[Rfam]
RNA sequence: AGCAGCACGGGAGAGCGACCCGUUAGCUGGCAGACAAUCCAGUCCCCAUCCCACGGCAACUGUGGAUGGGACUGGCUUUCUGCGCUCUUCAGAUCUCUGAAAAGAGUUGGUGCAUUCGCACUAAAUCUUUGUAUUGCGACGAACUUGUUUGUAGCGGAUACCGCAUCGCUCGGGGGGAACGCUGUUCUCCUCGCGGUUCCGUCGCCCCA
Dot-bracket structure: ..(((((((((.......)))))..))))(((((.(...(((((((.((((............)))))))))))..).)))))......................................................................(((((.(((((.......((((((((.....)))))))))))))))))).......
RNA: Cyano-2 RNA